[Rfam]
This 229-nucleotide RNA sequence from Winslowiella iniecta belongs to the Rfam family "GlmZ RNA activator of glmS mRNA". The family's consensus secondary structure is taken from published work. This RNA was discovered in E. coli during a large scale screen. The sraJ gene was expressed in early logarithmic phase, but its level decreased with cell growth. By type it is a small RNA. A search with the family's covariance model found it, with a score of 67 bits.
RNA sequence: GUGGCUCAUUCACCCUGUUAUGACAGCCCUGCGAAAGCGGACAAGCGCUUCAUAAAACUUCGAAUGACGCACAAUACGGUGCCUGCCGUCCACCAAACCGAUAACAGAUCACUUUGUGACUUUAUCAAGCAUCGGACGCAACGUUGAGUUAGGCACCACCUCUUCAGUUGCGGUGACCAAUGUGUCAUCGUGAUAAAAAAGGCAGAUUCCUUGAAUCUGCCUUUUUUCU
Numbered sequence: 001g002u003g004g005c006u007c008a009u010u011c012a013c014c015c016u017g018u019u020a021u022g023a024c025a026g027c028c029c030u031g032c033g034a035a036a037g038c039g040g041a042c043a044a045g046c047g048c049u050u051c052a053u054a055a056a057a058c059u060u061c062g063a064a065u066g067a068c069g070c071a072c073a074a075u076a077c078g079g080u081g082c083c084u085g086c087c088g089u090c091c092a093c094c095a096a097a098c099c100g101a102u103a104a105c106a107g108a109u110c111a112c113u114u115u116g117u118g119a120c121u122u123u124a125u126c127a128a129g130c131a132u133c134g135g136a137c138g139c140a141a142c143g144u145u146g147a148g149u150u151a152g153g154c155a156c157c158a159c160c161u162c163u164u165c166a167g168u169u170g171c172g173g174u175g176a177c178c179a180a181u182g183u184g185u186c187a188u189c190g191u192g193a194u195a196a197a198a199a200a201g202g203c204a205g206a207u208u209c210c211u212u213g214a215a216u217c218u219g220c221c222u223u224u225u226u227u228c229u
Stems, first nucleotide, its partner, number of pairs: 001072002004070002006067004016054002024047001078157007088137004100126004167189001198224011